About this RNA
The record is an 87-nucleotide sequence from Nitrosomonas nitrosa, which matches "c-di-GMP-I riboswitch aptamer" in Rfam. The organism belongs to Nitrosomonas, within Bacteria. The family's consensus secondary structure is taken from published work. Rfam links the family to the GO term cyclic-di-GMP binding.
[Rfam]
RNA sequence: AACUGUAAAAGGCAAACCUCGCGAAAGUGAGGGACGCAAAGUCAUUGAUCUACAGGGCCAAUGCCCCAGGACUGCAAGACUGCCAGA
Numbered sequence: 001a002a003c004u005g006u007a008a009a010a011g012g013c014a015a016a017c018c019u020c021g022c023g024a025a026a027g028u029g030a031g032g033g034a035c036g037c038a039a040a041g042u043c044a045u046u047g048a049u050c051u052a053c054a055g056g057g058c059c060a061a062u063g064c065c066c067c068a069g070g071a072c073u074g075c076a077a078g079a080c081u082g083c084c085a086g087a
Stems, first nucleotide, its partner, number of pairs: 012037002017032006040081004045077003049071002055066004